[Rfam]
RNA: Small nucleolar RNA SNORD14
Organism: Raphanus sativus
RNA sequence: AGUUAAUGAUGAUAAUUGGAAAGGCUUGUUUCUCAAGAAAACAUUCGCAGUGGCCGCCUAAUAGCUUUCGCCUUUCGCCAGGCUUGAGAGUUAAUGCUGUUCAUAUCCUUCCUUGGAUGUCUGAAACU
Numbered sequence: 001a002g003u004u005a006a007u008g009a010u011g012a013u014a015a016u017u018g019g020a021a022a023g024g025c026u027u028g029u030u031u032c033u034c035a036a037g038a039a040a041a042c043a044u045u046c047g048c049a050g051u052g053g054c055c056g057c058c059u060a061a062u063a064g065c066u067u068u069c070g071c072c073u074u075u076c077g078c079c080a081g082g083c084u085u086g087a088g089a090g091u092u093a094a095u096g097c098u099g100u101u102c103a104u105a106u107c108c109u110u111c112c113u114u115g116g117a118u119g120u121c122u123g124a125a126a127c128u
Stems, first nucleotide, its partner, number of pairs: 001128004064091006